[Rfam]
RNA: Twister_sister_ribozyme
RNA sequence: AGGCUCCCCCAGGCCCAGCCCCGUGCAAGCCGGGGCCGCGGUUCCGCCGCGCGGCGCUCACAGGAGUAGGG
Numbered sequence: 001a002g003g004c005u006c007c008c009c010c011a012g013g014c015c016c017a018g019c020c021c022c023g024u025g026c027a028a029g030c031c032g033g034g035g036c037c038g039c040g041g042u043u044c045c046g047c048c049g050c051g052c053g054g055c056g057c058u059c060a061c062a063g064g065a066g067u068a069g070g071g
Stems, first nucleotide, its partner, number of pairs: 004066004013055003016029001018036001020034003037051006